The family of this 76-nucleotide RNA from Myotis davidii is "mir-9223 microRNA precursor family". The source organism's lineage runs through Eukaryota, Opisthokonta, Gnathostomata, Laurasiatheria and Myotis. It scores 74 bits against the family's covariance model.
[Rfam]
RNA sequence: GGUGGUUCUCAGGUGACACAUCCUGGAAUUGGGUUCCCUCGUCUCUGGUUCCAGAGUGCGUCACCCAAGAACGGCC
Numbered sequence: 001g002g003u004g005g006u007u008c009u010c011a012g013g014u015g016a017c018a019c020a021u022c023c024u025g026g027a028a029u030u031g032g033g034u035u036c037c038c039u040c041g042u043c044u045c046u047g048g049u050u051c052c053a054g055a056g057u058g059c060g061u062c063a064c065c066c067a068a069g070a071a072c073g074g075c076c
Stems, first nucleotide, its partner, number of pairs: 002075002005072005012065006019058003023054001025052009